[Rfam]
RNA sequence: GUUUUGUGAGGCCUUCUCUUCCCGGUUCUUCCCGGAGUUGGGAAAAGCUGGGUUGAGAGGGCAUAAGAAAAAAAAA
Numbered sequence: 001g002u003u004u005u006g007u008g009a010g011g012c013c014u015u016c017u018c019u020u021c022c023c024g025g026u027u028c029u030u031c032c033c034g035g036a037g038u039u040g041g042g043a044a045a046a047g048c049u050g051g052g053u054u055g056a057g058a059g060g061g062c063a064u065a066a067g068a069a070a071a072a073a074a075a076a
Stems, first nucleotide, its partner, number of pairs: 014059005021052005029044006
RNA: mir-320 microRNA precursor family